The record is a 364-nucleotide RNA from Halobacteriovorax sp. DA5, which matches "Bacterial RNase P class A" in Rfam. The organism belongs to Halobacteriovorax, within Bacteria. The match comes from Rfam's covariance-model search (224 bits). Its family is annotated with ribonuclease P activity, dimeric ribonuclease P complex and tRNA processing in the Gene Ontology.
[Rfam]
RNA sequence: AGAGUUAAGGAGACUAUCGCUGGUUUAUUAUACUUCGGUGUAAUAGACGGGAGGAAAGUCCGGGCACCAUAUGGCAGCUUAGCGGGUAACGCCCGUCGGUCGUGAGACUAGGACAAGUGCAACAGAAAGGAAGUACAGGGGUUUGAACUCGAUUGGGGUAGCUUCGGCCGGCCAAUCAGUGACGAGAUUCGUCUCACCUGCUGUAGUGAAAACAGGUAAACUCUAGGCGGUGCAAGCUUGAAUAGGUCGACUCAUGGGGUAGCCAGCCCUUGUUGACGGGUUAAGCGCUCGAGCCAGUGGGUAACUACUGGCCUAGACGAAUGAUAGUCCAAUACAGGACCCGGCUUAUACCUUGACUCUUUAU
Numbered sequence: 001a002g003a004g005u006u007a008a009g010g011a012g013a014c015u016a017u018c019g020c021u022g023g024u025u026u027a028u029u030a031u032a033c034u035u036c037g038g039u040g041u042a043a044u045a046g047a048c049g050g051g052a053g054g055a056a057a058g059u060c061c062g063g064g065c066a067c068c069a070u071a072u073g074g075c076a077g078c079u080u081a082g083c084g085g086g087u088a089a090c091g092c093c094c095g096u097c098g099g100u101c102g103u104g105a106g107a108c109u110a111g112g113a114c115a116a117g118u119g120c121a122a123c124a125g126a127a128a129g130g131a132a133g134u135a136c137a138g139g140g141g142u143u144u145g146a147a148c149u150c151g152a153u154u155g156g157g158g159u160a161g162c163u164u165c166g167g168c169c170g171g172c173c174a175a176u177c178a179g180u181g182a183c184g185a186g187a188u189u190c191g192u193c194u195c196a197c198c199u200g201c202u203g204u205a206g207u208g209a210a211a212a213c214a215g216g217u218a219a220a221c222u223c224u225a226g227g228c229g230g231u232g233c234a235a236g237c238u239u240g241a242a243u244a245g246g247u248c249g250a251c252u253c254a255u256g257g258g259g260u261a262g263c264c265a266g267c268c269c270u271u272g273u274u275g276a277c278g279g280g281u282u283a284a285g286c287g288c289u290c291g292a293g294c295c296a297g298u299g300g301g302u303a304a305c306u307a308c309u310g311g312c313c314u315a316g317a318c319g320a321a322u323g324a325u326a327g328u329c330c331a332a333u334a335c336a337g338g339a340c341c342c343g344g345c346u347u348a349u350a351c352c353u354u355g356a357c358u359c360u361u362u363a364u
Stems, first nucleotide, its partner, number of pairs: 001360010011349001012329007020051002023048010056347003060344005065232004072265004077228005082096005097111001098109004112223002117221002119217002236286004246277006256270005293312008